[Rfam]
RNA sequence: UUCGAAUUCGGAGAGGGAACUGCGGAAAGAUAUAAUAAAUUAAAAUUUAAGUGGUAGGAAUUAACAAGCAUGUUGUAAU
Numbered sequence: 001u002u003c004g005a006a007u008u009c010g011g012a013g014a015g016g017g018a019a020c021u022g023c024g025g026a027a028a029g030a031u032a033u034a035a036u037a038a039a040u041u042a043a044a045a046u047u048u049a050a051g052u053g054g055u056a057g058g059a060a061u062u063a064a065c066a067a068g069c070a071u072g073u074u075g076u077a078a079u
Base pairs, nucleotide, nucleotide: 007028008027009024010023012021013020062075063074064073065072